Description:
Shown here is an 84-nucleotide sequence from Nothoprocta perdicaria, a member of the family "Small nucleolar RNA U2-19". The family's RNA type in Rfam is C/D-box small nucleolar RNA. A reference for the family is Tycowski et al. (2004), "Guide RNAs with 5' Caps and Novel Box C/D snoRNA-like Domains for Modification of snRNAs in Metazoa", Curr Biol. The organism belongs to Nothoprocta, within Eukaryota.
RNA sequence: GGUCCGUGAUGAGAAAUAGCCAAAUCUGAGCACCAGAGGAUAAACUGAUCUUCCGGGUGCUGUGAUUUGUACACCGUUCUGAGA
Dot-bracket structure: .............................(((((...((((......))))....)))))........................